[Rfam]
RNA sequence: CGGGUAGGGCCGGGGGCUCGCCCUCCCCCGAGCCCCGAAAUGGGCGUAAUGCGGGGGCCAGUAACCCGCACGUCGGCCGUAGUGGUCCAGGGCAGACCCGGCCGACCCAUGACCCCCGUCCCGCGGGGCCGGCGGCGCGGAGCCCCCUCCGGAGGGAGGGAGGCUACCGCCCUUACCGGGGGAACCAGGCCAGGCCCGGAAGGGAGCAACCUAACCCCGGACGCCCGGCGUUCGCGGGGCCACGGGGUGAGGCAACGGCCGGGCCCCCUGCCCUGGGCCCCUACGGCUGGCGUGCGGGGGCCG
Numbered sequence: 001c002g003g004g005u006a007g008g009g010c011c012g013g014g015g016g017c018u019c020g021c022c023c024u025c026c027c028c029c030g031a032g033c034c035c036c037g038a039a040a041u042g043g044g045c046g047u048a049a050u051g052c053g054g055g056g057g058c059c060a061g062u063a064a065c066c067c068g069c070a071c072g073u074c075g076g077c078c079g080u081a082g083u084g085g086u087c088c089a090g091g092g093c094a095g096a097c098c099c100g101g102c103c104g105a106c107c108c109a110u111g112a113c114c115c116c117c118g119u120c121c122c123g124c125g126g127g128g129c130c131g132g133c134g135g136c137g138c139g140g141a142g143c144c145c146c147c148u149c150c151g152g153a154g155g156g157a158g159g160g161a162g163g164c165u166a167c168c169g170c171c172c173u174u175a176c177c178g179g180g181g182g183a184a185c186c187a188g189g190c191c192a193g194g195c196c197c198g199g200a201a202g203g204g205a206g207c208a209a210c211c212u213a214a215c216c217c218c219g220g221a222c223g224c225c226c227g228g229c230g231u232u233c234g235c236g237g238g239g240c241c242a243c244g245g246g247g248u249g250a251g252g253c254a255a256c257g258g259c260c261g262g263g264c265c266c267c268c269u270g271c272c273c274u275g276g277g278c279c280c281c282u283a284c285g286g287c288u289g290g291c292g293u294g295c296g297g298g299g300g301c302c303g
Stems, first nucleotide, its partner, number of pairs: 001303003005299001008059004012029005034055004039050001065298007073290006082280001085278011097263008107252002110249001114247006120238008128229005133223002135172001137170004141165004145160006176220006187212003195204003